[Rfam]
Overview:
Rfam assigns this 56-nucleotide RNA sequence from Nocardioides antri to the family "L17-Actino-Proteobacteria ribosomal protein leader". The organism belongs to Nocardioides, within Bacteria. On this family, see Eckert and Weinberg, BMC Microbiol 2020: "Discovery of 20 novel ribosomal leader candidates in bacteria and archaea". The family's consensus secondary structure is taken from published work. The match comes from Rfam's covariance-model search (42 bits). Rfam classes the family as a cis-regulatory leader.
RNA sequence: GGUCGGGGCUCUUGCUCCGGCUGCCACUAGCUCCGGUACCUGGUACGGCCGGGGAG
Number, nucleotide and partner (000 for none) at each position: 001g022002g021003u020004c019005g018006g017007g016008g015009c000010u000011c000012u000013u000014g000015c008016u007017c006018c005019g004020g003021c002022u001023g000024c000025c000026a000027c056028u055029a000030g000031c054032u053033c052034c051035g050036g049037u048038a000039c000040c000041u000042g000043g000044u000045a000046c000047g000048g037049c036050c035051g034052g033053g032054g031055a028056g027